[Rfam]
RNA: Guanidine-II riboswitch aptamer (mini-ykkC)
Organism: Sulfitobacter pontiacus
RNA sequence: GUGUGAGGACGACCUCCCCUGAAUGGAAAACUGUCGGGACGACCCGG
Dot-bracket structure: (...((((....)))).)...............(((((....)))))